Rfam assigns this 106-nucleotide RNA from Pseudomonas sp. TAD18 to the family "Pseudomonas rnk leader". The source organism's lineage runs through Bacteria, Gammaproteobacteria, Pseudomonadales, Pseudomonadaceae and Pseudomonas. A search with the family's covariance model found it, with a score of 68 bits. The family's RNA type in Rfam is cis-regulatory leader. Rfam links the family to the GO term regulation of gene expression.
RNA sequence: CCCCUCUGGCUUGUGUAUUUAUUUUGCUGUGGUAGUGUCCGGGUUCGCCUCGCACUAACGAGGUUGGUCAAAACCCCGCCAUUUUCUGGCGGGGUUUUGCUUUUUC
Numbered sequence: 001c002c003c004c005u006c007u008g009g010c011u012u013g014u015g016u017a018u019u020u021a022u023u024u025u026g027c028u029g030u031g032g033u034a035g036u037g038u039c040c041g042g043g044u045u046c047g048c049c050u051c052g053c054a055c056u057a058a059c060g061a062g063g064u065u066g067g068u069c070a071a072a073a074c075c076c077c078g079c080c081a082u083u084u085u086c087u088g089g090c091g092g093g094g095u096u097u098u099g100c101u102u103u104u105u106c
Stems, first nucleotide, its partner, number of pairs: 019035005070098012